The record is a 110-nucleotide RNA from Mycolicibacterium sarraceniae, which matches "TPP riboswitch aptamer (THI element)" in Rfam.
The family's consensus secondary structure is taken from published work.
A search with the family's covariance model found it, with a score of 61 bits.
About the family: Vitamin B(1) in its active form thiamin pyrophosphate (TPP) is an essential coenzyme that is synthesised by coupling of pyrimidine and thiazole moieties in bacteria. The previously detected thiamin-regulatory element, thi box was extended, resulting in a new, highly conserved RNA secondary structure, the THI element, which is widely distributed in eubacteria and also occurs in some archaea. Analysis of operon structures identified a large number of new candidate thiamin-regulated genes, mostly transporters, in various prokaryotic organisms. The THI element is a riboswitch that directly binds to TPP to regulate gene expression through a variety of mechanisms in archaea, bacteria and eukaryotes. through a variety of mechanisms in archaea, bacteria and eukaryotes.
For this family Rfam cites "Comparative genomics of thiamin biosynthesis in procaryotes. New genes and regulatory mechanisms" (Rodionov et al., J Biol Chem, 2002).

RNA sequence: CAACAACCACACGGGAGCGCACACGCGAGUGCGCUGAGAGGACGGCUAGGGCCGUCGACCGUAGAACCUGUCCGGGUAAUGCCGGCGUAGGGAGUGAAUAUGGCUGAUCU
Numbered sequence: 001c002a003a004c005a006a007c008c009a010c011a012c013g014g015g016a017g018c019g020c021a022c023a024c025g026c027g028a029g030u031g032c033g034c035u036g037a038g039a040g041g042a043c044g045g046c047u048a049g050g051g052c053c054g055u056c057g058a059c060c061g062u063a064g065a066a067c068c069u070g071u072c073c074g075g076g077u078a079a080u081g082c083c084g085g086c087g088u089a090g091g092g093a094g095u096g097a098a099u100a101u102g103g104c105u106g107a108u109c110u
Stems, first nucleotide, its partner, number of pairs: 008096003011062004017034005041056005067091004072085004